[Rfam]
RNA sequence: UGCAAGUUUUUGACGAUUCAGAAGCAACUGUUUUUUGUACAAAUUGUGUAUUAAUCU
Numbered sequence: 001u002g003c004a005a006g007u008u009u010u011u012g013a014c015g016a017u018u019c020a021g022a023a024g025c026a027a028c029u030g031u032u033u034u035u036u037g038u039a040c041a042a043a044u045u046g047u048g049u050a051u052u053a054a055u056c057u
Stems, first nucleotide, its partner, number of pairs: 018037001020035006
Shown here is a 57-nucleotide RNA sequence from Gossypium mustelinum, a member of the family "Plastid-rps18 3UTR RNA". The source organism's lineage runs through Eukaryota, Tracheophyta, eudicotyledons, Pentapetalae and Gossypium. Rfam describes the family as follows. Plastid rps18 is a non-coding RNA (ncRNA) present in plastids. It was identified as a short stem-loop motif in the 3 prime untranslate region (3UTR) of rps18 gene. A search with the family's covariance model found it, with a score of 63 bits.